Overview
The record is an 87-nucleotide RNA sequence from Equus caballus, which matches "mir-9014 microRNA precursor family" in Rfam. A search with the family's covariance model found it, with a score of 88 bits. Its family is annotated with RISC complex and miRNA-mediated post-transcriptional gene silencing in the Gene Ontology. Pairs were carried over by alignment from the consensus structure, which was predicted with RNAalifold.

[Rfam]
RNA sequence: GGAGCCAGAGAGAGGGAUCCCAAUCCAGCCUUAGGAAAAGAAGCCUGCCACGGGAGUCUUGGAGAUUGGCGACCAUCUAAUGACUUA
Numbered sequence: 001g002g003a004g005c006c007a008g009a010g011a012g013a014g015g016g017a018u019c020c021c022a023a024u025c026c027a028g029c030c031u032u033a034g035g036a037a038a039a040g041a042a043g044c045c046u047g048c049c050a051c052g053g054g055a056g057u058c059u060u061g062g063a064g065a066u067u068g069g070c071g072a073c074c075a076u077c078u079a080a081u082g083a084c085u086u087a
Stems, first nucleotide, its partner, number of pairs: 002086003006082002011078003015074002018071001020069006029062002038060004044054004